[Rfam]
RNA sequence: AUACCGAAGUGUUAGGCAGAGGCUCCUGUAUAAACAUAAGCUAUCGCCCAAAAAUGUCGAGAGACGCCAAUGGGUAAAACAGAGAUUGUCGAAAUAAGGCUUUCUCCAGGUAGCUAAGAAAUUUUUCUUUACGUUAUACAGUGCUAAAACUCAGACGAAGCAACUCAAU
Dot-bracket structure: .....(..(((([.((....(((..((((((((......(((((.(((((....((((....))))....)))))......((((..(((......])))..))))...))))).(((........)))....)))))))).)))....))...))...))..).....